[Rfam]
RNA: mir-346 microRNA precursor family
Organism: Chrysochloris asiatica
RNA sequence: AGGUCCUGUGUUGGGCGCCUGUCUGCCCGCCUGCCUGCCUCUCUGUCCUCUGAAGGAGGCAGGGGCCGGGCUGCAGCUGCCUGGGCAGAGCUG
Numbered sequence: 001a002g003g004u005c006c007u008g009u010g011u012u013g014g015g016c017g018c019c020u021g022u023c024u025g026c027c028c029g030c031c032u033g034c035c036u037g038c039c040u041c042u043c044u045g046u047c048c049u050c051u052g053a054a055g056g057a058g059g060c061a062g063g064g065g066c067c068g069g070g071c072u073g074c075a076g077c078u079g080c081c082u083g084g085g086c087a088g089a090g091c092u093g
Base pairs, nucleotide, nucleotide: 006088007087008086009085012083013082014081015080016079017078019076020075021074022073025071026070027069028068029066030065034063035062036061037060038059039058040057041056043055044054